Rfam assigns this 67-nucleotide sequence to the family "RAGATH-18 RNA".
Rfam's curators write: Actinobacteria, Firmicutes, Fusobacteria, Thermotogae (1 example).
The family's consensus secondary structure is taken from published work.
Rfam's curators put it in the seed alignment.
By type it is a small RNA.
RNA sequence: CCUUUGGAGUAUUAUGAAACCUCGAGUAGUUCGUUUUAGAAUGAAAGAGAAUACGAUGAAUUAGGAA
Numbered sequence: 001c002c003u004u005u006g007g008a009g010u011a012u013u014a015u016g017a018a019a020c021c022u023c024g025a026g027u028a029g030u031u032c033g034u035u036u037u038a039g040a041a042u043g044a045a046a047g048a049g050a051a052u053a054c055g056a057u058g059a060a061u062u063a064g065g066a067a
Base pairs, nucleotide, nucleotide: 001065002064003063009054010053011052012051013050021049022048023047029042030041031040